RNA sequence: UCCUCACUUGUCCACUUCUGCCUGCCCUGCCCAAAUGGUGGAGCAGAUUCGAGGGGCAGGGCAGGAAGAAGUGGACAAGUGAGGC
Numbered sequence: 001u002c003c004u005c006a007c008u009u010g011u012c013c014a015c016u017u018c019u020g021c022c023u024g025c026c027c028u029g030c031c032c033a034a035a036u037g038g039u040g041g042a043g044c045a046g047a048u049u050c051g052a053g054g055g056g057c058a059g060g061g062c063a064g065g066a067a068g069a070a071g072u073g074g075a076c077a078a079g080u081g082a083g084g085c
Stems, first nucleotide, its partner, number of pairs: 002084018021065012036045002

The record is an 85-nucleotide RNA from Homo sapiens, which matches "mir-4436 microRNA precursor family" in Rfam. Gene Ontology terms of the family: miRNA-mediated post-transcriptional gene silencing and RISC complex. The family has 2 seed sequences and 72 matches in Rfam 15.1. The base pairs follow the family's consensus structure, which was predicted with RNAalifold.